RNA sequence: GUUCAUAUUGUCGAAUCGCGUCGUAUAAUGUUGGGGAUAUGGCCCAAGAGUUUCUACCGAGCCACCGUAAAUGGCUUGACUACGAGGCAGUGAUAAAUGGUG
Numbered sequence: 001g002u003u004c005a006u007a008u009u010g011u012c013g014a015a016u017c018g019c020g021u022c023g024u025a026u027a028a029u030g031u032u033g034g035g036g037a038u039a040u041g042g043c044c045c046a047a048g049a050g051u052u053u054c055u056a057c058c059g060a061g062c063c064a065c066c067g068u069a070a071a072u073g074g075c076u077u078g079a080c081u082a083c084g085a086g087g088c089a090g091u092g093a094u095a096a097a098u099g100g101u102g
Stems, first nucleotide, its partner, number of pairs: 018088002021085005029049001031047005058078007

Rfam assigns this 102-nucleotide sequence from Neobacillus thermocopriae to the family "Purine riboswitch aptamer". Pairs were carried over by alignment from the consensus structure, which is taken from published work. A search with the family's covariance model found it, with a score of 84 bits. About the family: Riboswitches are metabolite binding domains within certain messenger RNAs that serve as precision sensors for their corresponding targets. Allosteric rearrangement of mRNA structure is mediated by ligand binding, and this results in modulation of gene expression.